Rfam assigns this 62-nucleotide RNA sequence from Pseudoduganella namucuonensis to the family "Betaproteobacteria toxic small RNA". The source organism's lineage runs through Bacteria, Betaproteobacteria, Burkholderiales, Oxalobacteraceae and Pseudoduganella. Overexpression in amino aid rich medium attenuates growth, suggesting role in repressing amino acid intake and metabolism.
RNA sequence: UGUCUCCUCCAACUCUUCAAAAGAAUUGGAUUUAGCCCGCUCUCAGUAGCGGGCUUUUUUUU
Numbered sequence: 001u002g003u004c005u006c007c008u009c010c011a012a013c014u015c016u017u018c019a020a021a022a023g024a025a026u027u028g029g030a031u032u033u034a035g036c037c038c039g040c041u042c043u044c045a046g047u048a049g050c051g052g053g054c055u056u057u058u059u060u061u062u
Stems, first nucleotide, its partner, number of pairs: 008030005014024002034055008
For this family Rfam cites "A vast collection of microbial genes that are toxic to bacteria" (Kimelman et al., Genome Res, 2012).